[Rfam]
RNA: Potassium channel RNA editing signal
Organism: Pediculus humanus
RNA sequence: GUUGGCUAUGGUGACAUGGCUCCGAAAACAUACGUCGGAAUGUUUGUCGGAGCAUUAUGUGCAUUAGCCGGAGUGCUCACAAUCGCAUUGCCUGUGCCUGUUAUAGUUGCUAAU
Numbered sequence: 001g002u003u004g005g006c007u008a009u010g011g012u013g014a015c016a017u018g019g020c021u022c023c024g025a026a027a028a029c030a031u032a033c034g035u036c037g038g039a040a041u042g043u044u045u046g047u048c049g050g051a052g053c054a055u056u057a058u059g060u061g062c063a064u065u066a067g068c069c070g071g072a073g074u075g076c077u078c079a080c081a082a083u084c085g086c087a088u089u090g091c092c093u094g095u096g097c098c099u100g101u102u103a104u105a106g107u108u109g110c111u112a113a114u
Stems, first nucleotide, its partner, number of pairs: 001114002004111002008107002011104001013102004018097001021094001037077002040074001050062001